[Rfam]
Overview:
sok antitoxin (CssrC): a 147-nucleotide RNA sequence from Photorhabdus laumondii. Also identified in Shigella as CssrC.
RNA sequence: GGGCGCUUGAGACUAUCUGUCUCUGGCGUGCUGGAGCGGAUAGAAGAAAGCCCCACACGACUAUAAAUCGAAGUGAGGCCAGUUCUUAUGCUUUGCAACAUAAGAUUAGCCUCUUACACGCCGAAAGGCAAGGAGACGCUAACCAUG
Numbered sequence: 001g002g003g004c005g006c007u008u009g010a011g012a013c014u015a016u017c018u019g020u021c022u023c024u025g026g027c028g029u030g031c032u033g034g035a036g037c038g039g040a041u042a043g044a045a046g047a048a049a050g051c052c053c054c055a056c057a058c059g060a061c062u063a064u065a066a067a068u069c070g071a072a073g074u075g076a077g078g079c080c081a082g083u084u085c086u087u088a089u090g091c092u093u094u095g096c097a098a099c100a101u102a103a104g105a106u107u108a109g110c111c112u113c114u115u116a117c118a119c120g121c122c123g124a125a126a127g128g129c130a131a132g133g134a135g136a137c138g139c140u141a142a143c144c145a146u147g
Base pairs, nucleotide, nucleotide: 001054002053003052005051006050007049008048013043014042015041016040017039018038019037021036022035023034026031055074056073059069060068062066075113076112077111078110079109082107084105085104086103087102088101089100090099117138121135
Pairs were carried over by alignment from the consensus structure, which is taken from published work. A reference for the family is Kawano et al. (2007), "An antisense RNA controls synthesis of an SOS-induced toxin evolved from an antitoxin", Mol Microbiol.